[Rfam]
RNA sequence: UAACCCUGCGGAGUGCUCAGGUCCGCCGCAUCUCCUGGGUCCGUAGGGUUCGGCCGGCCGGAGGCGGCUAGAGUGGCCUCCUCGUAUAGGUCGUCUUCGGUCGGCCACCUC
Numbered sequence: 001u002a003a004c005c006c007u008g009c010g011g012a013g014u015g016c017u018c019a020g021g022u023c024c025g026c027c028g029c030a031u032c033u034c035c036u037g038g039g040u041c042c043g044u045a046g047g048g049u050u051c052g053g054c055c056g057g058c059c060g061g062a063g064g065c066g067g068c069u070a071g072a073g074u075g076g077c078c079u080c081c082u083c084g085u086a087u088a089g090g091u092c093g094u095c096u097u098c099g100g101u102c103g104g105c106c107a108c109c110u111c
Stems, first nucleotide, its partner, number of pairs: 003049008016039006052106011
Dot-bracket structure: ..((((((((.....((((((............))))))..))))))))..(((((((((((.................................))))))))))).....
EcpR1: a 111-nucleotide RNA sequence from Lutibaculum baratangense. The family's RNA type in Rfam is small RNA. NCBI's taxonomy places the organism under Bacteria, Hyphomicrobiales, Tepidamorphaceae, Lutibaculum, Lutibaculum baratangense. A reference for the family is Wilms et al. (2012), "Deep sequencing uncovers numerous small RNAs on all four replicons of the plant pathogen Agrobacterium tumefaciens", RNA Biol. From the family's description: Perviously named SmelC291, SmrC10, or Sra33. According to its overproduction phenotype it was renamed Elongated Cell Phenotype RNA1. Induced by stress,EcpR1 negatively regulates cell cycle master regulatory genes dnaA and gcrA at post-transcriptional level by base pairing between its strongly conserved GC-rich loop and the target mRNAs. Its family is annotated with regulation of translation in response to stress, negative regulation of cell cycle and mRNA binding in the Gene Ontology.